This 65-nucleotide RNA from Mesocricetus auratus belongs to the Rfam family "Small nucleolar RNA SNORD109A".
RNA sequence: GGAUCGAUGAUGAAAACAAGUUCUGAGGACAGUGAUCAAUUUAUAACUAUGCCAAUCUGAGCUCC
Numbered sequence: 001g002g003a004u005c006g007a008u009g010a011u012g013a014a015a016a017c018a019a020g021u022u023c024u025g026a027g028g029a030c031a032g033u034g035a036u037c038a039a040u041u042u043a044u045a046a047c048u049a050u051g052c053c054a055a056u057c058u059g060a061g062c063u064c065c
Base pairs, nucleotide, nucleotide: 001065002064003063005061

The family is grouped with related families in Rfam's "SNORD74 clan". Rfam's curators write: Humans have two copies of the SNORD109 gene, SNORD109A and SNORD109B. For this family Rfam cites "The IC-SNURF-SNRPN transcript serves as a host for multiple small nucleolar RNA species and as an antisense RNA for UBE3A" (Runte et al., Hum Mol Genet, 2001). The organism belongs to Mesocricetus, within Eukaryota.